[Rfam]
RNA sequence: UGUUCUAUGAUUGUGUACUGGCUGAAAACUCAGUAAGCAUGUGUUGUCAUCAACUUUAUCUCUUUGUUAUUGUUAGUGGAGAGUAAAAUAACAGCAUGAAUUGU
Numbered sequence: 001u002g003u004u005c006u007a008u009g010a011u012u013g014u015g016u017a018c019u020g021g022c023u024g025a026a027a028a029c030u031c032a033g034u035a036a037g038c039a040u041g042u043g044u045u046g047u048c049a050u051c052a053a054c055u056u057u058a059u060c061u062c063u064u065u066g067u068u069a070u071u072g073u074u075a076g077u078g079g080a081g082a083g084u085a086a087a088a089u090a091a092c093a094g095c096a097u098g099a100a101u102u103g104u
Stems, first nucleotide, its partner, number of pairs: 040098007053084005060076002
Shown here is a 104-nucleotide RNA from Paspalum vaginatum, a member of the family "Small nucleolar RNA snoR97". The source organism's lineage runs through Eukaryota, Viridiplantae, Streptophyta, Magnoliopsida and Paspalum.